[Rfam]
Shown here is a 129-nucleotide RNA from Streptomyces sp. RB17, a member of the family "Streptomyces-metH RNA". Lineage of the source: Bacteria > Bacillati > Actinomycetes > Streptomycetaceae > Streptomyces.
RNA sequence: GGCGUCCGCGUCGUGGACGCCGGUGCCCAUCCAAGCCGACUCCCGGUUACUCUGGCGCCGUGCGGCAGCCCCGCCUCCCAUGGGACACCGCAUAGCCGACAGCCGUCGCACCUAGGGAGCCCCUUCAUG
Number, nucleotide and partner (000 for none) at each position: 001g000002g000003c000004g000005u000006c000007c000008g000009c000010g000011u000012c000013g000014u000015g000016g000017a000018c000019g000020c000021c000022g000023g000024u000025g000026c000027c000028c000029a000030u000031c000032c000033a000034a000035g000036c000037c000038g000039a000040c000041u000042c000043c000044c000045g000046g000047u000048u000049a000050c000051u000052c000053u000054g000055g000056c000057g000058c000059c000060g000061u092062g091063c090064g089065g000066c000067a000068g086069c000070c084071c083072c082073g081074c000075c000076u000077c000078c000079c000080a000081u073082g072083g071084g070085a000086c068087a000088c000089c064090g063091c062092a061093u000094a000095g109096c108097c000098g107099a106100c105101a000102g000103c000104c000105g100106u099107c098108g096109c095110a000111c000112c000113u000114a000115g000116g000117g000118a000119g000120c000121c000122c000123c000124u000125u000126c000127a000128u000129g000